[Rfam]
Record summary: The family of this 117-nucleotide RNA sequence from Novosphingobium sp. Fuku2-ISO-50 is "SAM-I/IV (S-adenosyl methionine) riboswitch aptamer". Taxonomically the source falls in Novosphingobium (Bacteria, Alphaproteobacteria, Sphingomonadales, Sphingomonadaceae). Its Rfam clan is "SAM clan". A search with the family's covariance model found it, with a score of 51 bits.

RNA sequence: GGCCAGCAUCAAGAGUUGGGAUCUCGUAUCCCGACGCCAACCUGCCGGUAUCCGGGCAAGGUGGCGCCUUUGCGCAAGCGAAGGGAUGUGGCCGCAGCGGCAACCAAACGGAGCCAA
Numbered sequence: 001g002g003c004c005a006g007c008a009u010c011a012a013g014a015g016u017u018g019g020g021a022u023c024u025c026g027u028a029u030c031c032c033g034a035c036g037c038c039a040a041c042c043u044g045c046c047g048g049u050a051u052c053c054g055g056g057c058a059a060g061g062u063g064g065c066g067c068c069u070u071u072g073c074g075c076a077a078g079c080g081a082a083g084g085g086a087u088g089u090g091g092c093c094g095c096a097g098c099g100g101c102a103a104c105c106a107a108a109c110g111g112a113g114c115c116a117a
Stems, first nucleotide, its partner, number of pairs: 006089005015035008036065003041061003044057003051112003091101004